Annotation: The family of this 581-nucleotide part of an RNA from Trichia sordida is "Eukaryotic small subunit ribosomal RNA". Pairs were carried over by alignment from the consensus structure, which is taken from published work. Lineage of the source: Eukaryota > Eumycetozoa > Lucisporidia > Trichiida > Trichia. On this family, see Cannone et al., BMC Bioinformatics 2002: "The comparative RNA web (CRW) site: an online database of comparative sequence and structure information for ribosomal, intron, and other RNAs". Rfam's curators put it in the seed alignment.
RNA sequence: CAGUUAAAACGCUCGUAGUCCAAACCAGUGCGCCCGCUAGGUUCCUAGUACUGCCUGACCAUGCGCUCCCUCCUAACCGGAGUGGGGUGCGGGCUGGCGGGGACGGUUCUGGGCGGCCACUAUUGAGCCGGGGGAACCGGGCGGGUGGGGCUUCAGUGCUCCGCCUGCCUGCCCCUGGCACAUUACUUUGAACAAACGUGAGCGCUCCAAGCAGGCCAUAUCGGCCCUUAAAACCCGCAGCAAAGAAUAACCCAACAGGUACUCACCUGUUCGUUGGUACAGGUAUCGGGUAAAUGAUCUAUAGGGGCGAUCGGGGUGGGCCACAUGCCAGGGGUAGGGGUGAAAUCCGUUGAUCCUUGGCAGGUGAACUAGAGCGAAAGCAGCCCACAAGUACGCAUCCUUUGAUCAAGAACGAAAGUCUGGGGAUCGAAGAUGAUCAGAUACCAUCGUAGUCCAGACCCUAAAUGAUGCCGGCCAUGGAUGGGCUCUCGUCCAUCCCGACCCAGCCCGCACUUUAUAGGAAACUAUAAGCGUUUGGGCUCCGGGGGGAGUAUGGUCGCAAGACUGAAACUUAAAGGAAU
Numbered sequence: 001c002a003g004u005u006a007a008a009a010c011g012c013u014c015g016u017a018g019u020c021c022a023a024a025c026c027a028g029u030g031c032g033c034c035c036g037c038u039a040g041g042u043u044c045c046u047a048g049u050a051c052u053g054c055c056u057g058a059c060c061a062u063g064c065g066c067u068c069c070c071u072c073c074u075a076a077c078c079g080g081a082g083u084g085g086g087g088u089g090c091g092g093g094c095u096g097g098c099g100g101g102g103a104c105g106g107u108u109c110u111g112g113g114c115g116g117c118c119a120c121u122a123u124u125g126a127g128c129c130g131g132g133g134g135a136a137c138c139g140g141g142c143g144g145g146u147g148g149g150g151c152u153u154c155a156g157u158g159c160u161c162c163g164c165c166u167g168c169c170u171g172c173c174c175c176u177g178g179c180a181c182a183u184u185a186c187u188u189u190g191a192a193c194a195a196a197c198g199u200g201a202g203c204g205c206u207c208c209a210a211g212c213a214g215g216c217c218a219u220a221u222c223g224g225c226c227c228u229u230a231a232a233a234c235c236c237g238c239a240g241c242a243a244a245g246a247a248u249a250a251c252c253c254a255a256c257a258g259g260u261a262c263u264c265a266c267c268u269g270u271u272c273g274u275u276g277g278u279a280c281a282g283g284u285a286u287c288g289g290g291u292a293a294a295u296g297a298u299c300u301a302u303a304g305g306g307g308c309g310a311u312c313g314g315g316g317u318g319g320g321c322c323a324c325a326u327g328c329c330a331g332g333g334g335u336a337g338g339g340g341u342g343a344a345a346u347c348c349g350u351u352g353a354u355c356c357u358u359g360g361c362a363g364g365u366g367a368a369c370u371a372g373a374g375c376g377a378a379a380g381c382a383g384c385c386c387a388c389a390a391g392u393a394c395g396c397a398u399c400c401u402u403u404g405a406u407c408a409a410g411a412a413c414g415a416a417a418g419u420c421u422g423g424g425g426a427u428c429g430a431a432g433a434u435g436a437u438c439a440g441a442u443a444c445c446a447u448c449g450u451a452g453u454c455c456a457g458a459c460c461c462u463a464a465a466u467g468a469u470g471c472c473g474g475c476c477a478u479g480g481a482u483g484g485g486c487u488c489u490c491g492u493c494c495a496u497c498c499c500g501a502c503c504c505a506g507c508c509c510g511c512a513c514u515u516u517a518u519a520g521g522a523a524a525c526u527a528u529a530a531g532c533g534u535u536u537g538g539g540c541u542c543c544g545g546g547g548g549g550a551g552u553a554u555g556g557u558c559g560c561a562a563g564a565c566u567g568a569a570a571c572u573u574a575a576a577g578g579a580a581u
Stems, first nucleotide, its partner, number of pairs: 001544001003542001009541001011413001013411002018406003304400003308395002312391001316388006322366002326362008337348003374381002418459006428452001432448004470540003474532002477515001479513001482510006491502003519526002546573003555566004